RNA sequence: UUGAUUUAUUAACUAUUUGUUAAUUGUUUAUAGCUUAAAUUAACUUAUCCAUAUCAUAUGGAUAUUGAGUGGCUCCUGUCACUCUGUUUGACGCCUCCCUGUUAACUCCUGAGAGCCGCCUAUCGCGGCUCUUUUUUU
Number, nucleotide and partner (000 for none) at each position: 001u043002u042003g041004a040005u000006u015007u000008a000009u000010u000011a000012a000013c000014u000015a006016u038017u037018u000019g000020u000021u000022a035023a000024u033025u032026g031027u000028u000029u000030a000031u026032a025033g024034c000035u022036u000037a017038a016039a000040u004041u003042a002043a001044c000045u000046u000047a063048u062049c061050c060051a000052u000053a000054u000055c000056a000057u000058a000059u000060g050061g049062a048063u047064a000065u000066u000067g084068a083069g082070u081071g080072g000073c000074u000075c000076c000077u000078g000079u000080c071081a070082c069083u068084c067085u000086g000087u000088u000089u000090g103091a102092c101093g100094c000095c000096u000097c000098c000099c000100u093101g092102u091103u090104a000105a000106c000107u000108c000109c000110u000111g133112a132113g131114a130115g129116c128117c127118g126119c125120c000121u000122a000123u000124c000125g119126c118127g117128g116129c115130u114131c113132u112133u111134u000135u000136u000137u000138u000
A member of the RNA family "Alphaproteobacterial sRNA BjrC1505" from Cohaesibacter gelatinilyticus, 138 nucleotides long. The literature on the family includes a 2012 paper in RNA Biol by Madhugiri et al., "Small RNAs of the Bradyrhizobium/Rhodopseudomonas lineage and their analysis". A search with the family's covariance model found it, with a score of 92 bits. NCBI's taxonomy places the organism under Bacteria, Pseudomonadati, Pseudomonadota, Hyphomicrobiales, Cohaesibacter.